Description: Shown here is a 247-nucleotide RNA sequence from Actinoalloteichus hoggarensis, a member of the family "Actinobacteria sRNA Ms_IGR-5". It scores 66 bits against the family's covariance model. The base pairs follow the family's consensus structure. The literature on the family includes a 2013 paper in RNA by Li et al., "Identification of small RNAs in Mycobacterium smegmatis using heterologous Hfq". The source organism's lineage runs through Bacteria, Actinomycetes, Pseudonocardiales, Pseudonocardiaceae and Actinoalloteichus. It is annotated as a small RNA.
[Rfam]
RNA sequence: ACACGAGAGAGGAGGUGGUCCAGCGUUGAAUACCAGCAGGACUCGUGAGGUGGCUGCCCGCUAGGCCGCCCGAUCGGUGUACGAACGCCGACGGCCGACGCGCCGUCCCCCGGCCACACACCGGGGGUGCGCGACGGGACACGGUCGGUGAAUACCAGGUAGUCACCCGGCCCUCGGAGUGCCGAGCUCAGUCCGGCUCGGCCCCGCGCCCUCGUAGGCGUGGGAGCCACUCCGGGGGCCGCCUGCC
Number, nucleotide and partner (000 for none) at each position: 001a000002c000003a000004c000005g000006a000007g000008a000009g000010a000011g000012g000013a000014g058015g057016u056017g055018g054019u053020c000021c000022a000023g000024c000025g000026u000027u000028g000029a000030a000031u000032a000033c000034c000035a000036g000037c000038a000039g000040g000041a000042c000043u000044c000045g000046u000047g000048a000049g000050g000051u000052g000053g019054c018055u017056g016057c015058c014059c150060g149061c148062u147063a000064g145065g000066c000067c000068g000069c000070c000071c000072g000073a000074u000075c000076g000077g000078u000079g000080u000081a000082c000083g000084a000085a000086c000087g000088c000089c000090g000091a000092c000093g000094g000095c000096c000097g000098a000099c000100g000101c000102g000103c000104c000105g000106u000107c000108c000109c000110c000111c000112g000113g000114c000115c000116a000117c000118a000119c000120a000121c000122c000123g000124g000125g000126g000127g000128u000129g000130c000131g000132c000133g000134a000135c000136g000137g000138g000139a000140c000141a000142c000143g000144g000145u064146c000147g062148g061149u060150g059151a000152a000153u000154a000155c000156c000157a000158g000159g000160u000161a000162g000163u000164c000165a000166c000167c000168c241169g240170g239171c238172c237173c236174u235175c234176g233177g232178a231179g230180u229181g000182c201183c200184g199185a198186g197187c196188u000189c000190a000191g000192u000193c000194c000195g000196g187197c186198u185199c184200g183201g182202c000203c000204c000205c000206g000207c000208g000209c000210c000211c000212u000213c000214g000215u000216a000217g000218g000219c000220g000221u000222g000223g000224g000225a000226g000227c000228c000229a180230c179231u178232c177233c176234g175235g174236g173237g172238g171239c170240c169241g168242c000243c000244u000245g000246c000247c000